[Rfam]
RNA: c-di-GMP-I-GGC riboswitch aptamer
Organism: Paenibacillus sp. OAS669
RNA sequence: ACUGAAAAAGGCAAACCUGACCGAAAGGCAGGGACGCAAAGCCGCGGGCCUUCCCCAAAGUAAGUUUGGGAUGGUAGCUGGGUUGCCAACU
Numbered sequence: 001a002c003u004g005a006a007a008a009a010g011g012c013a014a015a016c017c018u019g020a021c022c023g024a025a026a027g028g029c030a031g032g033g034a035c036g037c038a039a040a041g042c043c044g045c046g047g048g049c050c051u052u053c054c055c056c057a058a059a060g061u062a063a064g065u066u067u068g069g070g071a072u073g074g075u076a077g078c079u080g081g082g083u084u085g086c087c088a089a090c091u
Stems, first nucleotide, its partner, number of pairs: 001091001003088002011037002016032004021028002035077001040084004045080003048075003